Rfam assigns this 69-nucleotide sequence from Amphibalanus amphitrite to the family "mir-124 microRNA precursor family".
The base pairs follow the family's consensus structure, which was predicted with PFOLD.
Lineage of the source: Eukaryota > Metazoa > Ecdysozoa > Arthropoda > Amphibalanus.
The match comes from Rfam's covariance-model search (54 bits).
[Rfam]
RNA sequence: AACCCCUCGUGUUCACCGUUGGCUUUUGUGUUCAUUUCGCCAUAAGGCACGCGGUGAAUGCUAAGGGCU
Dot-bracket structure: ..(((...((((((((.((...(((.((((..........)))))))...)).))))))))...)))..